The record is a 72-nucleotide RNA sequence from Oceanimonas sp. GK1, which matches "tRNA" in Rfam. NCBI's taxonomy places the organism under Bacteria, Pseudomonadati, Aeromonadales, Aeromonadaceae, Oceanimonas. It scores 58 bits against the family's covariance model. Rfam describes the family as follows. Transfer RNA (tRNA) molecules are approximately 80 nucleotides in length.
RNA sequence: UGGGGUAUCGCCAAGCGGUAAGGCAGCGGGUUUUGAUCUCGCCAUUCCCAGGUUCGAAUCCUGGUACCCCAG
Numbered sequence: 001u002g003g004g005g006u007a008u009c010g011c012c013a014a015g016c017g018g019u020a021a022g023g024c025a026g027c028g029g030g031u032u033u034u035g036a037u038c039u040c041g042c043c044a045u046u047c048c049c050a051g052g053u054u055c056g057a058a059u060c061c062u063g064g065u066a067c068c069c070c071a072g
Base pairs, nucleotide, nucleotide: 001071002070003069004068005067006066007065010024011023012022026042027041028040029039030038048064049063050062051061052060